Shown here is a 149-nucleotide RNA sequence from Nyctereutes procyonoides, a member of the family "U12 minor spliceosomal RNA". The organism belongs to Nyctereutes, within Eukaryota. Rfam 15.1 lists 2,106 matches to the family in 1,170 species.

RNA sequence: AUGACUUAAGCUUAUGAGUAAGGAAAAUACCAAUUCAGGGUAAUGUCUAAAUCCUCACUGCUAAUGUGGGAUGAAUUUGUGAGUGGAUACAGGUGCCCCUAAGGUGACCUGCCUACUUGCCAGUAUGCCUAGGAGUCGCGAUUUGCCCA
Numbered sequence: 001a002u003g004a005c006u007u008a009a010g011c012u013u014a015u016g017a018g019u020a021a022g023g024a025a026a027a028u029a030c031c032a033a034u035u036c037a038g039g040g041u042a043a044u045g046u047c048u049a050a051a052u053c054c055u056c057a058c059u060g061c062u063a064a065u066g067u068g069g070g071a072u073g074a075a076u077u078u079g080u081g082a083g084u085g086g087a088u089a090c091a092g093g094u095g096c097c098c099c100u101a102a103g104g105u106g107a108c109c110u111g112c113c114u115a116c117u118u119g120c121c122a123g124u125a126u127g128c129c130u131a132g133g134a135g136u137c138g139c140g141a142u143u144u145g146c147c148c149a
Stems, first nucleotide, its partner, number of pairs: 005022004033052003037048003054070005084149003088145001091144004095139002099133002102130005109123003
Dot-bracket structure: ....((((..........))))..........(((.(((......))).))).(((((.......))))).............(((.(..((((((..((.(((((..(((.........)))..))))).))....)).))))).)))